Small nucleolar RNA snoR27: a 92-nucleotide RNA from Gossypium laxum. The family has 6 seed sequences and 649 matches in Rfam 15.1. Rfam links the family to the GO terms RNA processing and nucleolus. Rfam classes the family as a C/D-box small nucleolar RNA.
RNA sequence: AUUGGGUCCAUGAUGCUACUUUACAAACUGCGUUAUCUAUCUGAACUUCCUUUUAUAAGGAUUGAAGACAUUUUUCCAUGCUGAGAUCCACU
Numbered sequence: 001a002u003u004g005g006g007u008c009c010a011u012g013a014u015g016c017u018a019c020u021u022u023a024c025a026a027a028c029u030g031c032g033u034u035a036u037c038u039a040u041c042u043g044a045a046c047u048u049c050c051u052u053u054u055a056u057a058a059g060g061a062u063u064g065a066a067g068a069c070a071u072u073u074u075u076c077c078a079u080g081c082u083g084a085g086a087u088c089c090a091c092u
Stems, first nucleotide, its partner, number of pairs: 001092001003090005